[Rfam]
RNA sequence: GAUAGCCAAAAAUAAUAAAAGGAUUCAGAGUCGGAUUAGAAAUAAUUCGUACACCGCCUAUAGCAGGGUCAUAAAUUCCUCUAAAGAACAUUGCUUUGGCAACCAAUAGCAAAGCUGCCGCACCCAAGAAAAUCAGAUGAUGACCCAAAAUAAAACCCAGUUUUUUCGGAUCGUGCCA
Numbered sequence: 001g002a003u004a005g006c007c008a009a010a011a012a013u014a015a016u017a018a019a020a021g022g023a024u025u026c027a028g029a030g031u032c033g034g035a036u037u038a039g040a041a042a043u044a045a046u047u048c049g050u051a052c053a054c055c056g057c058c059u060a061u062a063g064c065a066g067g068g069u070c071a072u073a074a075a076u077u078c079c080u081c082u083a084a085a086g087a088a089c090a091u092u093g094c095u096u097u098g099g100c101a102a103c104c105a106a107u108a109g110c111a112a113a114g115c116u117g118c119c120g121c122a123c124c125c126a127a128g129a130a131a132a133u134c135a136g137a138u139g140a141u142g143a144c145c146c147a148a149a150a151u152a153a154a155a156c157c158c159a160g161u162u163u164u165u166u167c168g169g170a171u172c173g174u175g176c177c178a
Stems, first nucleotide, its partner, number of pairs: 137174005144169002147166002

The family of this 178-nucleotide sequence from Pleurocapsales cyanobacterium LEGE 06147 is "Antisense RNA which regulates isiA expression". The family's consensus secondary structure was predicted with PFOLD. Lineage of the source: Bacteria > Bacillati > Cyanobacteriota > Cyanophyceae > Pleurocapsales.